[Rfam]
RNA: Small nucleolar RNA SNORD127
RNA sequence: UGGCAACUGUGAUGAUUCCCAUGACUCUGCAAUGCGCAUUGCUGCGAGAUGGAGACACCAGUCCCUCUAAACUGACGCUGCCA
Numbered sequence: 001u002g003g004c005a006a007c008u009g010u011g012a013u014g015a016u017u018c019c020c021a022u023g024a025c026u027c028u029g030c031a032a033u034g035c036g037c038a039u040u041g042c043u044g045c046g047a048g049a050u051g052g053a054g055a056c057a058c059c060a061g062u063c064c065c066u067c068u069a070a071a072c073u074g075a076c077g078c079u080g081c082c083a
Base pairs, nucleotide, nucleotide: 001083002082003081004080005079007077
Dot-bracket structure: (((((.(.....................................................................).)))))